[Rfam]
This 82-nucleotide RNA from Kushneria marisflavi belongs to the Rfam family "SAH (S-adenosyl-L-homocysteine) riboswitch aptamer".
The organism belongs to Kushneria, within Bacteria.
The base pairs follow the family's consensus structure, which is taken from published work.

RNA sequence: CCACUCGAGGGGCGCUGCAGCAAGAGAGUGAUUCUUGCGAGGCUCGAGCUGGAUACCCCGGAUUCAACGGCGCCCGCUAUUU
Numbered sequence: 001c002c003a004c005u006c007g008a009g010g011g012g013c014g015c016u017g018c019a020g021c022a023a024g025a026g027a028g029u030g031a032u033u034c035u036u037g038c039g040a041g042g043c044u045c046g047a048g049c050u051g052g053a054u055a056c057c058c059c060g061g062a063u064u065c066a067a068c069g070g071c072g073c074c075c076g077c078u079a080u081u082u
Stems, first nucleotide, its partner, number of pairs: 004048005021037006